[Rfam]
RNA sequence: GAAUCUAAGUAACUGGGUUAGAAGCGGAGGAACCAAUGUAUUGGGGCGAAUCUUUGGAUAGAGAAAGGCACCUUCCAGCCUUAGCCCGUCAGCUAACUCCGUCGGCAUUGGAAGGAGUAUCA
Number, nucleotide and partner (000 for none) at each position: 001g000002a000003a000004u023005c000006u021007a000008a000009g000010u000011a000012a000013c000014u000015g000016g000017g000018u000019u000020a000021g006022a000023a004024g102025c101026g100027g099028a098029g097030g000031a000032a000033c000034c043035a042036a000037u000038g000039u000040a000041u000042u035043g034044g087045g086046g085047c000048g000049a000050a000051u000052c063053u062054u061055u060056g000057g000058a000059u000060a055061g054062a053063g052064a000065a000066a081067g080068g079069c078070a000071c000072c000073u000074u000075c000076c000077a000078g069079c068080c067081u066082u000083a000084g000085c046086c045087c044088g000089u000090c000091a000092g000093c000094u000095a000096a000097c029098u028099c027100c026101g025102u024103c000104g000105g000106c000107a000108u000109u000110g000111g000112a000113a000114g000115g000116a000117g000118u000119a000120u000121c000122a000
RNA: c-di-AMP riboswitch aptamer (ydaO/yuaA leader)